Rfam assigns this 143-nucleotide RNA sequence from Jejuibacter calystegiae to the family "isrN Hfq binding RNA". By type it is a small RNA. Rfam 15.1 lists 141 matches to the family in 98 species.
RNA sequence: AAAUAGCAGGCUCGUCACGCGUAGUAUUCGGACGAUAAUGAUAAACCGUUCUACUCAGGUUCAGGCUCCGACAGGCCUGACGGAUACUAAGCCCGAACGUCGUUAUCAGAUGAGUGACCAGCUCACGCUUAAAGGCUGGUUUC
Numbered sequence: 001a002a003a004u005a006g007c008a009g010g011c012u013c014g015u016c017a018c019g020c021g022u023a024g025u026a027u028u029c030g031g032a033c034g035a036u037a038a039u040g041a042u043a044a045a046c047c048g049u050u051c052u053a054c055u056c057a058g059g060u061u062c063a064g065g066c067u068c069c070g071a072c073a074g075g076c077c078u079g080a081c082g083g084a085u086a087c088u089a090a091g092c093c094c095g096a097a098c099g100u101c102g103u104u105a106u107c108a109g110a111u112g113a114g115u116g117a118c119c120a121g122c123u124c125a126c127g128c129u130u131a132a133a134g135g136c137u138g139g140u141u142u143c
Base pairs, nucleotide, nucleotide: 025112026111027110028109030107031106048077050075051074052073058067059066060065080103081102082101083100116141117140118139120137121136122135